[Rfam]
RNA sequence: UCAAUCCACGCGCGAGAGACCGGACCGCUUCUGGGCGGGCCGGCGCCGAAGGCGCAAUUCGCUCGUCAAUCGCUCAGGCAAACGGAGCGCGUGGGUGCC
Numbered sequence: 001u002c003a004a005u006c007c008a009c010g011c012g013c014g015a016g017a018g019a020c021c022g023g024a025c026c027g028c029u030u031c032u033g034g035g036c037g038g039g040c041c042g043g044c045g046c047c048g049a050a051g052g053c054g055c056a057a058u059u060c061g062c063u064c065g066u067c068a069a070u071c072g073c074u075c076a077g078g079c080a081a082a083c084g085g086a087g088c089g090c091g092u093g094g095g096u097g098c099c
Stems, first nucleotide, its partner, number of pairs: 006094008020043004045079003048075002052073003059065001